[Rfam]
Background
A member of the RNA family "mir-8517 microRNA precursor family" from Plutella xylostella, 108 nucleotides long.
RNA sequence: UUAUAGGAUGUUUUAGCUAUUGAGCUGUUUUAUCCCUCUUUAUCAAAAAACCAAUUGUUCGUUGACAGAGAGGGACAAAACAGUUCAAUAGCUACAACGACCUAUAAC
Numbered sequence: 001u002u003a004u005a006g007g008a009u010g011u012u013u014u015a016g017c018u019a020u021u022g023a024g025c026u027g028u029u030u031u032a033u034c035c036c037u038c039u040u041u042a043u044c045a046a047a048a049a050a051c052c053a054a055u056u057g058u059u060c061g062u063u064g065a066c067a068g069a070g071a072g073g074g075a076c077a078a079a080a081c082a083g084u085u086c087a088a089u090a091g092c093u094a095c096a097a098c099g100a101c102c103u104a105u106a107a108c
Base pairs, nucleotide, nucleotide: 001107002106003105004104005103006102011097012096014094015093016092017091018090019089020088021087022086023085024084025083026082027081028080029069030068031067033065034064049059050058051057

Pairs were carried over by alignment from the consensus structure, which was predicted with RNAalifold.